[Rfam]
RNA sequence: ACCAAUGAUGAUUUGUCUGCAAAAUGGAUGUGUUGUGAAACCAAGACCCUGUUUGUAGGGAGAACCUACUUGGGGAAGCAUCACUAAUAUGACAUCAACAGAUAUGUCUGAGGU
Numbered sequence: 001a002c003c004a005a006u007g008a009u010g011a012u013u014u015g016u017c018u019g020c021a022a023a024a025u026g027g028a029u030g031u032g033u034u035g036u037g038a039a040a041c042c043a044a045g046a047c048c049c050u051g052u053u054u055g056u057a058g059g060g061a062g063a064a065c066c067u068a069c070u071u072g073g074g075g076a077a078g079c080a081u082c083a084c085u086a087a088u089a090u091g092a093c094a095u096c097a098a099c100a101g102a103u104a105u106g107u108c109u110g111a112g113g114u
Stems, first nucleotide, its partner, number of pairs: 001114003047060005

A member of the RNA family "Small nucleolar RNA Z278" from Dendrobium catenatum, 114 nucleotides long.
It scores 52 bits against the family's covariance model.
Rfam classes the family as a C/D-box small nucleolar RNA.
About the family: snoZ278 is a C/D box small nucleolar RNA. Its methylation guide targets have not been reported.
The family has 7 seed sequences and 1,130 matches in Rfam 15.1.
Taxonomically the source falls in Dendrobium (Eukaryota, Embryophyta, Spermatophyta, Liliopsida).